[Rfam]
RNA sequence: GCAGUGACGUGCCCUUGUCAUUCUUCAGGCCCUGUGUAUUUACAACUACUGGACGGAGAACUGAUAAGGGCACGCCGUGUA
Numbered sequence: 001g002c003a004g005u006g007a008c009g010u011g012c013c014c015u016u017g018u019c020a021u022u023c024u025u026c027a028g029g030c031c032c033u034g035u036g037u038a039u040u041u042a043c044a045a046c047u048a049c050u051g052g053a054c055g056g057a058g059a060a061c062u063g064a065u066a067a068g069g070g071c072a073c074g075c076c077g078u079g080u081a
Base pairs, nucleotide, nucleotide: 012070013069014068015067016066017065018064019063020062021060022059023058025057026056030052031051